[Rfam]
RNA: Actinobacteria sRNA Ms_IGR-7
RNA sequence: CGCUGAUGUUCUCUCGAUCUGUGGACCUGGAACCGUAGGAAGUCCCAUCGUCCCAGGUCAGAGGACAUCCGCGUCAUCAUGUCCAGGCCCCGACGGAUCAUUCAUCGGUGGAUUCGG
Number, nucleotide and partner (000 for none) at each position: 001c000002g072003c071004u000005g069006a068007u067008g066009u065010u064011c063012u062013c061014u000015c000016g059017a058018u000019c056020u055021g054022u000023g052024g000025a000026c000027c000028u047029g000030g045031a000032a043033c042034c000035g000036u000037a000038g000039g000040a000041a000042g033043u032044c000045c030046c000047a028048u000049c000050g000051u000052c023053c000054c021055a020056g019057g000058u017059c016060a000061g013062a012063g011064g010065a009066c008067a007068u006069c005070c000071g003072c002073g000074u000075c000076a000077u000078c000079a000080u000081g000082u000083c000084c000085a000086g000087g000088c000089c000090c000091c000092g000093a000094c000095g000096g000097a000098u000099c000100a113101u112102u111103c110104a109105u000106c000107g000108g000109u104110g103111g102112a101113u100114u000115c000116g000117g000